[Rfam]
RNA sequence: GCUGGGGAUACUCCCCUGUAACGCUUGCGAGCUCGGCGGUGAAGCAGGCAUACUACCACUUCGUCCUAACAACUGCGUGGAUGGCCUGUCCCCCUUUAGUGCGCAGGUUGCAAGGCUGCUGCAAAGUAAUUUGCGGUAGGCUGGCAAGUGGUGACUGAAGGGGCGGCUCAGGCUGGCGACAGAGCAGGCAAAACUCAGCCCUGCGCACAGAUGGGGGAGAACUGGCUUAAGCAGUUGUUAGUGACAUCUGGUGGCUUGAGGGUCUGCAACUCCGCCUUU
Dot-bracket structure: (((((((......))))....((....)))))..(((((.(..((((((...((((((....(.(.((((((((((.(....((((.((((.(((.(.(((((((((((((.((.((((((((((....)))))))))).)).))))(...)..((((.......(((....(((....)))....))).....)))).)))))))))..).)))))...)).)))).).)))))))))))......))))))).......))))))..).)))))...
Numbered sequence: 001g002c003u004g005g006g007g008a009u010a011c012u013c014c015c016c017u018g019u020a021a022c023g024c025u026u027g028c029g030a031g032c033u034c035g036g037c038g039g040u041g042a043a044g045c046a047g048g049c050a051u052a053c054u055a056c057c058a059c060u061u062c063g064u065c066c067u068a069a070c071a072a073c074u075g076c077g078u079g080g081a082u083g084g085c086c087u088g089u090c091c092c093c094c095u096u097u098a099g100u101g102c103g104c105a106g107g108u109u110g111c112a113a114g115g116c117u118g119c120u121g122c123a124a125a126g127u128a129a130u131u132u133g134c135g136g137u138a139g140g141c142u143g144g145c146a147a148g149u150g151g152u153g154a155c156u157g158a159a160g161g162g163g164c165g166g167c168u169c170a171g172g173c174u175g176g177c178g179a180c181a182g183a184g185c186a187g188g189c190a191a192a193a194c195u196c197a198g199c200c201c202u203g204c205g206c207a208c209a210g211a212u213g214g215g216g217g218a219g220a221a222c223u224g225g226c227u228u229a230a231g232c233a234g235u236u237g238u239u240a241g242u243g244a245c246a247u248c249u250g251g252u253g254g255c256u257u258g259a260g261g262g263u264c265u266g267c268a269a270c271u272c273c274g275c276c277u278u279u
Stems, first nucleotide, its partner, number of pairs: 001032003004017004022029002035276005041270001044267006053254006063248001065241001067240010078229001083227004088222002090217002093215003097211001099208009108147004113142002116139010148152001155198004166189003173182003

Rfam assigns this 279-nucleotide RNA from Effrenium voratum to the family "Metazoan signal recognition particle RNA". Gene Ontology terms of the family: SRP-dependent cotranslational protein targeting to membrane, signal sequence recognition and signal recognition particle, endoplasmic reticulum targeting. It scores 103 bits against the family's covariance model. Rfam classes the family as a non-coding RNA gene.